Shown here is a 52-nucleotide RNA sequence from Oceanicella actignis, a member of the family "ffh sRNA".

RNA sequence: AUGCGCGGGGAUCGCCGCCGGCCAGCGCGUUGCGCCCGCCGGCGCGAAACCG
Numbered sequence: 001a002u003g004c005g006c007g008g009g010g011a012u013c014g015c016c017g018c019c020g021g022c023c024a025g026c027g028c029g030u031u032g033c034g035c036c037c038g039c040c041g042g043c044g045c046g047a048a049a050c051c052g
Stems, first nucleotide, its partner, number of pairs: 016044007025035004
It scores 58 bits against the family's covariance model. The family's consensus secondary structure is taken from published work. The organism belongs to Oceanicella, within Bacteria.